A member of the RNA family "Small nucleolar RNA SNORA13" from Esox lucius, 130 nucleotides long.
The family is grouped with related families in Rfam's "SNORA13 clan".

[Rfam]
RNA sequence: UGCCUUUGUAUUGCCUGUUCAUUGUCUCAAAAAUGAAUGGGUUACUGAAGGAGGCAUACAGCAAUUCUUGAGGUUGUCUUUGAUUGGUGCCUACUGAAUCCUUUCUUUGUGCUCAACUGCAAGAACAUUG
Numbered sequence: 001u002g003c004c005u006u007u008g009u010a011u012u013g014c015c016u017g018u019u020c021a022u023u024g025u026c027u028c029a030a031a032a033a034u035g036a037a038u039g040g041g042u043u044a045c046u047g048a049a050g051g052a053g054g055c056a057u058a059c060a061g062c063a064a065u066u067c068u069u070g071a072g073g074u075u076g077u078c079u080u081u082g083a084u085u086g087g088u089g090c091c092u093a094c095u096g097a098a099u100c101c102u103u104u105c106u107u108u109g110u111g112c113u114c115a116a117c118u119g120c121a122a123g124a125a126c127a128u129u130g
Stems, first nucleotide, its partner, number of pairs: 002055006009047002012044002015041001016039008067123004071118001073117004082112001085109003089100001

Rfam describes the family as follows. ACA13 is a member of the H/ACA class of snoRNA that guide the sites of modification of uridines to pseudouridines. Rfam classes the family as an H/ACA-box small nucleolar RNA. Taxonomically the source falls in Esox (Eukaryota, Bilateria, Vertebrata, Euteleostomi). A search with the family's covariance model found it, with a score of 54 bits. Its family is annotated with RNA processing and nucleolus in the Gene Ontology.